[Rfam]
RNA sequence: UUUUAUGGAUAAUGAAAACCAUAAAAAUACCUGGAAUAAUUUUAUAAAAUUUGUGUUGUGGG
Numbered sequence: 001u002u003u004u005a006u007g008g009a010u011a012a013u014g015a016a017a018a019c020c021a022u023a024a025a026a027a028u029a030c031c032u033g034g035a036a037u038a039a040u041u042u043u044a045u046a047a048a049a050u051u052u053g054u055g056u057u058g059u060g061g062g
Stems, first nucleotide, its partner, number of pairs: 001026008030062004034057002036054004
Background
A member of the RNA family "pntA sRNA", 62 nucleotides long. The family's consensus secondary structure is taken from published work. For this family Rfam cites "Identification of candidate structured RNAs in the marine organism 'Candidatus Pelagibacter ubique'" (Meyer et al., BMC Genomics, 2009).